[Rfam]
RNA sequence: AUGCGAAUAUUCUCGCUCUCCUGAUAUUUUUGUGAUCAGGGGAGGCUAGACAUUCGCUAUAUUAAAACUGCAUUGUGUCCAGAUCCAGGACUGGGUUGUUCUUCUAGUACUGGCUUUGUAAAUGCUAGUGACAGGU
Numbered sequence: 001a002u003g004c005g006a007a008u009a010u011u012c013u014c015g016c017u018c019u020c021c022u023g024a025u026a027u028u029u030u031u032g033u034g035a036u037c038a039g040g041g042g043a044g045g046c047u048a049g050a051c052a053u054u055c056g057c058u059a060u061a062u063u064a065a066a067a068c069u070g071c072a073u074u075g076u077g078u079c080c081a082g083a084u085c086c087a088g089g090a091c092u093g094g095g096u097u098g099u100u101c102u103u104c105u106a107g108u109a110c111u112g113g114c115u116u117u118g119u120a121a122a123u124g125c126u127a128g129u130g131a132c133a134g135g136u
Stems, first nucleotide, its partner, number of pairs: 003057003016044010067129003070125002085113004090108005
Small nucleolar RNA SNORA72: a 136-nucleotide RNA from Centropus unirufus. NCBI's taxonomy places the organism under Eukaryota, Euteleostomi, Archosauria, Otidimorphae, Centropus. The family has 29 seed sequences and 1,541 matches in Rfam 15.1. The base pairs follow the family's consensus structure, which was predicted with PFOLD. Gene Ontology terms of the family: nucleolus and RNA processing. It is annotated as an H/ACA-box small nucleolar RNA. From the family's description: U72 is a member of the H/ACA class of snoRNAs.